RNA sequence: ACCGCAUACUUACCUACUAUAUAGUAGGUGAAAUACAUGUAUCUCAGCUACUAUAUAGUAGGUAUGUAUACAGUUU
Numbered sequence: 001a002c003c004g005c006a007u008a009c010u011u012a013c014c015u016a017c018u019a020u021a022u023a024g025u026a027g028g029u030g031a032a033a034u035a036c037a038u039g040u041a042u043c044u045c046a047g048c049u050a051c052u053a054u055a056u057a058g059u060a061g062g063u064a065u066g067u068a069u070a071c072a073g074u075u076u
Stems, first nucleotide, its partner, number of pairs: 001074002004071001006069004011064005017058011029046003033042003

The family of this 76-nucleotide RNA sequence from Ameiurus melas is "mir-7563 microRNA precursor family". The match comes from Rfam's covariance-model search (83 bits). Taxonomically the source falls in Ameiurus (Eukaryota, Actinopteri, Siluriformes, Siluroidei). Pairs were carried over by alignment from the consensus structure, which was predicted with RNAalifold.